[Rfam]
RNA sequence: CAAUUCUUAUCGCUAAAUUUCCGUCAAGGAAAACGGGGGAACCAAACAUGACGCGCCUUAACCUAAGGUGCGCCAUACGGGGUGAAUCCUUAUGCUGCAAGCAUAAGGUAGGGCGACUCUCGCCGUCCGAAUCCGUCAGCUAACUUCGUCAGCGUUGAAUGAGAGAGGGU
Numbered sequence: 001c002a003a004u005u006c007u008u009a010u011c012g013c014u015a016a017a018u019u020u021c022c023g024u025c026a027a028g029g030a031a032a033a034c035g036g037g038g039g040a041a042c043c044a045a046a047c048a049u050g051a052c053g054c055g056c057c058u059u060a061a062c063c064u065a066a067g068g069u070g071c072g073c074c075a076u077a078c079g080g081g082g083u084g085a086a087u088c089c090u091u092a093u094g095c096u097g098c099a100a101g102c103a104u105a106a107g108g109u110a111g112g113g114c115g116a117c118u119c120u121c122g123c124c125g126u127c128c129g130a131a132u133c134c135g136u137c138a139g140c141u142a143a144c145u146u147c148g149u150c151a152g153c154g155u156u157g158a159a160u161g162a163g164a165g166a167g168g169g170u
Base pairs, nucleotide, nucleotide: 011154012153013152014151018032019031020030021029022028033149034148035147036146037145038144043079080134081133082132088108089107090106091105092104093103094102095101096100111128112127113126114125

Rfam assigns this 170-nucleotide RNA sequence from Paenibacillus radicis to the family "c-di-AMP riboswitch aptamer (ydaO/yuaA leader)". NCBI's taxonomy places the organism under Bacteria, Bacillota, Bacilli, Caryophanales, Paenibacillus. Rfam describes the family as follows. This family represents a conserved RNA structure found upstream of the ydaO and yuaA genes in Bacillus subtilis and related genes in other bacteria.